[Rfam]
RNA sequence: AUCAAUAGUUACAGAAAAUUAUAAACUGUAACUGGGACUAAAAUGGGAACAUUUGUUAAAAAGAAUAAAUUGAAUAAUAGUUCCAAGUGGUUUACAUUUGGACAAAAAAUG
Numbered sequence: 001a002u003c004a005a006u007a008g009u010u011a012c013a014g015a016a017a018a019u020u021a022u023a024a025a026c027u028g029u030a031a032c033u034g035g036g037a038c039u040a041a042a043a044u045g046g047g048a049a050c051a052u053u054u055g056u057u058a059a060a061a062a063g064a065a066u067a068a069a070u071u072g073a074a075u076a077a078u079a080g081u082u083c084c085a086a087g088u089g090g091u092u093u094a095c096a097u098u099u100g101g102a103c104a105a106a107a108a109a110u111g
Base pairs, nucleotide, nucleotide: 006034007033008032009031010030011029012028013027014026051066052065053064054063080103081102083101084100085099086098087097088096089095
Dot-bracket structure: .....(((((((((...........)))))))))................((((........)))).............((.(((((((.....)))))))))........
This 111-nucleotide RNA from Peptoniphilus lacrimalis belongs to the Rfam family "Streptococcus sRNA SpR18". The family has 23 seed sequences and 63 matches in Rfam 15.1. A search with the family's covariance model found it, with a score of 116 bits. By type it is a small RNA.